Rfam assigns this 101-nucleotide RNA sequence from Synechococcales cyanobacterium T60_A2020_003 to the family "Glutamine riboswitch aptamer (glnA leader)". On this family, see Ames and Breaker, RNA Biol 2011: "Bacterial aptamers that selectively bind glutamine".
[Rfam]
RNA sequence: AUCGUUCAUCUUCUCUCAGGUGCUAGGCGAUAAAGUUUUAUAACGGUCGCAAUCAGGUUGAGGAAGACGGAAGUAGGGAGCAUAUCCCGAAGGAACGCGCC
Number, nucleotide and partner (000 for none) at each position: 001a000002u000003c097004g096005u095006u094007c093008a000009u067010c066011u065012u064013c063014u000015c000016u000017c000018a000019g000020g000021u000022g000023c000024u000025a000026g000027g000028c000029g000030a000031u000032a000033a000034a000035g000036u000037u000038u000039u000040a000041u000042a000043a000044c000045g000046g000047u000048c000049g000050c000051a000052a000053u000054c000055a000056g000057g000058u000059u000060g000061a000062g000063g013064a012065a011066g010067a009068c000069g000070g098071a000072a000073g000074u000075a000076g088077g087078g086079a000080g000081c000082a000083u000084a000085u000086c078087c077088c076089g000090a000091a000092g000093g007094a006095a005096c004097g003098c070099g000100c000101c000